[Rfam]
A member of the RNA family "Bacterial RNase P class B" from Alkalicoccus urumqiensis, 391 nucleotides long. The match comes from Rfam's covariance-model search (321 bits). NCBI's taxonomy places the organism under Bacteria, Bacillota, Bacilli, Bacillaceae, Alkalicoccus.

RNA sequence: GUACUCGGGUAAUCGCUGUGCGCAUUCAGCGCAUAGAGGAAAGUCCAUGCUCGCACAGCCUGAAACGGCUGUAGUGUUCGUGCCUGACGAAAAAAUAAGUCAGGGCAGUGUGCGUCUGCACACUGACGGCAGAGACUCUGCCUGUGUCCCAUCAGCGGAUAUGGCAGCCAUCUCUUGAAAGUGCCACAGUGACGGAGCUUUACUGGAAACGGUAAAGGUGGAACGAGGUAAACCCCGCGAGUGAGAAACCCAAAAUUUGGUAGGGGCACUUCCGGAAAGGAAUCAAACGGACCGGAAGACGGACAGUUUGUCCGUAGACAGAUGAUUACCGCUUUUGUACGAGGGGAGGUUCCCCGUCUGCAGUACGAAAGACAGAACAUGGCUUACAGAG
Numbered sequence: 001g002u003a004c005u006c007g008g009g010u011a012a013u014c015g016c017u018g019u020g021c022g023c024a025u026u027c028a029g030c031g032c033a034u035a036g037a038g039g040a041a042a043g044u045c046c047a048u049g050c051u052c053g054c055a056c057a058g059c060c061u062g063a064a065a066c067g068g069c070u071g072u073a074g075u076g077u078u079c080g081u082g083c084c085u086g087a088c089g090a091a092a093a094a095a096u097a098a099g100u101c102a103g104g105g106c107a108g109u110g111u112g113c114g115u116c117u118g119c120a121c122a123c124u125g126a127c128g129g130c131a132g133a134g135a136c137u138c139u140g141c142c143u144g145u146g147u148c149c150c151a152u153c154a155g156c157g158g159a160u161a162u163g164g165c166a167g168c169c170a171u172c173u174c175u176u177g178a179a180a181g182u183g184c185c186a187c188a189g190u191g192a193c194g195g196a197g198c199u200u201u202a203c204u205g206g207a208a209a210c211g212g213u214a215a216a217g218g219u220g221g222a223a224c225g226a227g228g229u230a231a232a233c234c235c236c237g238c239g240a241g242u243g244a245g246a247a248a249c250c251c252a253a254a255a256u257u258u259g260g261u262a263g264g265g266g267c268a269c270u271u272c273c274g275g276a277a278a279g280g281a282a283u284c285a286a287a288c289g290g291a292c293c294g295g296a297a298g299a300c301g302g303a304c305a306g307u308u309u310g311u312c313c314g315u316a317g318a319c320a321g322a323u324g325a326u327u328a329c330c331g332c333u334u335u336u337g338u339a340c341g342a343g344g345g346g347a348g349g350u351u352c353c354c355c356g357u358c359u360g361c362a363g364u365a366c367g368a369a370a371g372a373c374a375g376a377a378c379a380u381g382g383c384u385u386a387c388a389g390a391g
Base pairs, nucleotide, nucleotide: 004391005390006389007387008330009329010328011327012326013325014324016036017035018034019033020032021031041385042384043383045382046381047380048379049378050245051244052243053242054241055072056071057070058069059068060067078240079239080238081237082236083104084103085102086101087100088099105127106125107124108123109122110121111120112119113118128235129234131175132174133173134172139166140165141164142163146160147159148158181233182232183229184228185227198217199216200215201214202213203212204211205210249265250264251263269298270297271296272295273294274293275292299315300314301313302312303311304310332371333370334369335368336367337366338365339364340363